[Rfam]
RNA sequence: GCUCACGAGCGGACGGCUGUUCGGGUACCUGGCCCGCCGUCCCGGCAACCGCGCUCCACCGCACGGUGCCCCAGGGGAAGAGCCGGCACGCGACCCGCGUGCAAGCGGUGGAC
Numbered sequence: 001g002c003u004c005a006c007g008a009g010c011g012g013a014c015g016g017c018u019g020u021u022c023g024g025g026u027a028c029c030u031g032g033c034c035c036g037c038c039g040u041c042c043c044g045g046c047a048a049c050c051g052c053g054c055u056c057c058a059c060c061g062c063a064c065g066g067u068g069c070c071c072c073a074g075g076g077g078a079a080g081a082g083c084c085g086g087c088a089c090g091c092g093a094c095c096c097g098c099g100u101g102c103a104a105g106c107g108g109u110g111g112a113c
Base pairs, nucleotide, nucleotide: 001083002082003081004080009043012041013040014039015038016037017036024034025033044070045069046068049066050065051064053062054061086102087101088100089099090098091097092096
RNA: SAM (S-adenosyl methionine) riboswitch aptamer
Organism: Mycobacterium helveticum